[Rfam]
RNA sequence: AUUAUUUGUUCUUUGGUGAUUUUAGCUGUAUGGUGUCUCAUAUUCCAUAGAGCUUUAUUACCAAAAACCAAAUGGU
Numbered sequence: 001a002u003u004a005u006u007u008g009u010u011c012u013u014u015g016g017u018g019a020u021u022u023u024a025g026c027u028g029u030a031u032g033g034u035g036u037c038u039c040a041u042a043u044u045c046c047a048u049a050g051a052g053c054u055u056u057a058u059u060a061c062c063a064a065a066a067a068c069c070a071a072a073u074g075g076u
Base pairs, nucleotide, nucleotide: 001076002075003074004073005072007070008069010067012065013064014063015062016061017060018059019058020057024054025053026052027051029049030048031047032046033045